Shown here is an 80-nucleotide RNA sequence from Crocodylus porosus, a member of the family "Mammalian CPEB3 ribozyme". It scores 42 bits against the family's covariance model. On this family, see Salehi-Ashtiani et al., Science 2006: "A genomewide search for ribozymes reveals an HDV-like sequence in the human CPEB3 gene". About the family: The mammalian CPEB3 ribozyme is a self cleaving RNA located in the second intron of the CPEB3 gene which belongs to a family of genes regulating messenger RNA polyadenylation. This ribozyme is highly conserved and found only in mammals.
[Rfam]
RNA sequence: AGAGGUCACAAGUUUGAGGCCACAGCACAAGUGGUCAUGGCGCAGCCGUGUUGGAUUCCAGCAAAUCUGCGAAUUCUGCU
Numbered sequence: 001a002g003a004g005g006u007c008a009c010a011a012g013u014u015u016g017a018g019g020c021c022a023c024a025g026c027a028c029a030a031g032u033g034g035u036c037a038u039g040g041c042g043c044a045g046c047c048g049u050g051u052u053g054g055a056u057u058c059c060a061g062c063a064a065a066u067c068u069g070c071g072a073a074u075u076c077u078g079c080u
Base pairs, nucleotide, nucleotide: 013048018047019046020045024080025079026078027077029075030074031043032042033041052069053068054067055066056065057064